Shown here is a 161-nucleotide RNA sequence from Lactococcus lactis, a member of the family "PyrR binding site".
RNA sequence: AAAACCUUUAACUAAGUCCAGAGAGGCUUGCAAGGAUACGGAAAAUUUAUCUUGGAUUACUGACAAACUAAGGAUGAACUUCUUUUUUAGCGUAUUUGUCUGUCAGUAAAUGACCAAUUUUUUAGUACACUUGUAAGUUCUCUUACAAGUGUUUUUUUAUU
Dot-bracket structure: ..(.((((....((((((......)))))).)))).).......................(.(.(((..(((......)))..))).).).................................((.((((((((((......)))))))))).))......

The sequence is in the family's curated seed alignment. The family's consensus secondary structure is taken from published work.